[Rfam]
RNA: mir-344 microRNA precursor family
RNA sequence: UUUCCAGUCAGGCUCCUGGCUAAUAUCCAGCUCUUAGCUGGAAUUUGUCAAACCCUGACUAUAAC
Numbered sequence: 001u002u003u004c005c006a007g008u009c010a011g012g013c014u015c016c017u018g019g020c021u022a023a024u025a026u027c028c029a030g031c032u033c034u035u036a037g038c039u040g041g042a043a044u045u046u047g048u049c050a051a052a053c054c055c056u057g058a059c060u061a062u063a064a065c
Stems, first nucleotide, its partner, number of pairs: 007059003011055002014052001017050004022045003027041005